[Rfam]
The record is an 87-nucleotide RNA from Probosciger aterrimus, which matches "Small nucleolar RNA SNORD116" in Rfam. NCBI's taxonomy places the organism under Eukaryota, Vertebrata, Euteleostomi, Tetrapoda, Probosciger. The base pairs follow the family's consensus structure, which was predicted with PFOLD. It scores 36 bits against the family's covariance model.

RNA sequence: GGAAGGAUUAUGAGCUGUAAGUCUGAUUUCCCACGAAUGCUGAAGUGAGUGAGAAGCUUGCUGGCUUCUCAUUGAAAACUGACAUCC
Numbered sequence: 001g002g003a004a005g006g007a008u009u010a011u012g013a014g015c016u017g018u019a020a021g022u023c024u025g026a027u028u029u030c031c032c033a034c035g036a037a038u039g040c041u042g043a044a045g046u047g048a049g050u051g052a053g054a055a056g057c058u059u060g061c062u063g064g065c066u067u068c069u070c071a072u073u074g075a076a077a078a079c080u081g082a083c084a085u086c087c
Stems, first nucleotide, its partner, number of pairs: 001087003005083001027054004032047003